[Rfam]
RNA sequence: GAGUCUAACAUCUAUGCGAGUGUUCGGGUGUCAAACCCGUACGCGUAAUGAAAGUGAACGGAGGUGGGAACCCGCAAGGGUGCACCAUCGGCCGAUCCUGAUGUCUUCGGAUGGAUUUGAGCAAGAGCAUAGCUGUUGGGACCCGAAAGAUGGUGAACUAUGCCUGAAUAGGGUGAAGCCAGAGGAAACUCUGGUGGAGGCUCGCAGCGGUUCUGACGUGCAAAUCGAUCGUCAAAUUUGGGUAUAGGGGCGAAAGACUAAUCGAACCAUCUAGUAGCUGGUU
Numbered sequence: 001g002a003g004u005c006u007a008a009c010a011u012c013u014a015u016g017c018g019a020g021u022g023u024u025c026g027g028g029u030g031u032c033a034a035a036c037c038c039g040u041a042c043g044c045g046u047a048a049u050g051a052a053a054g055u056g057a058a059c060g061g062a063g064g065u066g067g068g069a070a071c072c073c074g075c076a077a078g079g080g081u082g083c084a085c086c087a088u089c090g091g092c093c094g095a096u097c098c099u100g101a102u103g104u105c106u107u108c109g110g111a112u113g114g115a116u117u118u119g120a121g122c123a124a125g126a127g128c129a130u131a132g133c134u135g136u137u138g139g140g141a142c143c144c145g146a147a148a149g150a151u152g153g154u155g156a157a158c159u160a161u162g163c164c165u166g167a168a169u170a171g172g173g174u175g176a177a178g179c180c181a182g183a184g185g186a187a188a189c190u191c192u193g194g195u196g197g198a199g200g201c202u203c204g205c206a207g208c209g210g211u212u213c214u215g216a217c218g219u220g221c222a223a224a225u226c227g228a229u230c231g232u233c234a235a236a237u238u239u240g241g242g243u244a245u246a247g248g249g250g251c252g253a254a255a256g257a258c259u260a261a262u263c264g265a266a267c268c269a270u271c272u273a274g275u276a277g278c279u280g281g282u283u
Stems, first nucleotide, its partner, number of pairs: 005139006012132006020044003025039005048055002063089005070081003091122002093119003096115003102109002142281002145278001149271006158247011169235001171203004178195007207232004212228002215226002249259002